[Rfam]
RNA sequence: GUCGGUAGAGUAUCUUAUGGAAUAGGCGUUUCGGACCCGGGGGGCAGUACCCCGGCGCCUCCACCACCAGCCGCUGGAAAACACAGCGAAAUCAAGCGGUUGAUGAUGGGGGCGAAAUAGGAUCGACGAGCGCAAUAAAGAUAAGGUUGCCGAUCGGCAUGAGACCACCGUGACGGCUCAUUUUCACAAGUGCCAACGAUAACGAGGCGCUCGCUAUUGCUGCGUAA
Numbered sequence: 001g002u003c004g005g006u007a008g009a010g011u012a013u014c015u016u017a018u019g020g021a022a023u024a025g026g027c028g029u030u031u032c033g034g035a036c037c038c039g040g041g042g043g044g045c046a047g048u049a050c051c052c053c054g055g056c057g058c059c060u061c062c063a064c065c066a067c068c069a070g071c072c073g074c075u076g077g078a079a080a081a082c083a084c085a086g087c088g089a090a091a092u093c094a095a096g097c098g099g100u101u102g103a104u105g106a107u108g109g110g111g112g113c114g115a116a117a118u119a120g121g122a123u124c125g126a127c128g129a130g131c132g133c134a135a136u137a138a139a140g141a142u143a144a145g146g147u148u149g150c151c152g153a154u155c156g157g158c159a160u161g162a163g164a165c166c167a168c169c170g171u172g173a174c175g176g177c178u179c180a181u182u183u184u185c186a187c188a189a190g191u192g193c194c195a196a197c198g199a200u201a202a203c204g205a206g207g208c209g210c211u212c213g214c215u216a217u218u219g220c221u222g223c224g225u226a227a
Stems, first nucleotide, its partner, number of pairs: 001154005015144004027132003031129003037055005056114007155170003
The family of this 227-nucleotide RNA from Sphingomicrobium sediminis is "permuted transfer-messenger RNA". About the family: Bacterial tmRNA, also known as 10Sa RNA or SsrA, is named for its dual tRNA and mRNA-like properties. A reference for the family is Felden et al. (1997), "Probing the structure of the Escherichia coli 10Sa RNA (tmRNA)", RNA. The family's RNA type in Rfam is non-coding RNA gene. Lineage of the source: Bacteria > Pseudomonadati > Sphingomonadales > Sphingomicrobiaceae > Sphingomicrobium. A search with the family's covariance model found it, with a score of 135 bits.